[Rfam]
RNA sequence: GCAGGUUUAAGGCUGUAGCAGAAGUGGUCAUGGUGUAGCCUGUCAGAGUCCAAUGAAUUUGCAAAUUCUGCU
Numbered sequence: 001g002c003a004g005g006u007u008u009a010a011g012g013c014u015g016u017a018g019c020a021g022a023a024g025u026g027g028u029c030a031u032g033g034u035g036u037a038g039c040c041u042g043u044c045a046g047a048g049u050c051c052a053a054u055g056a057a058u059u060u061g062c063a064a065a066u067u068c069u070g071c072u
Base pairs, nucleotide, nucleotide: 011040012039013038014037017072018071019070020069021068022067023066024036025035026034044061045060046059047058049056050055